[Rfam]
RNA sequence: UCCGUUGUAGUCUAGCUGGUAAGGGUACUCGGCUUUCACCCGAGAGACCCGGAUUUGAUUACCGGCAACAGAG
Numbered sequence: 001u002c003c004g005u006u007g008u009a010g011u012c013u014a015g016c017u018g019g020u021a022a023g024g025g026u027a028c029u030c031g032g033c034u035u036u037c038a039c040c041c042g043a044g045a046g047a048c049c050c051g052g053a054u055u056u057g058a059u060u061a062c063c064g065g066c067a068a069c070a071g072a073g
Base pairs, nucleotide, nucleotide: 001072002071004069005068006067007066010026011025012024013023028044029043030042031041032040049065050064051063052062
RNA: tRNA
Organism: Brassica oleracea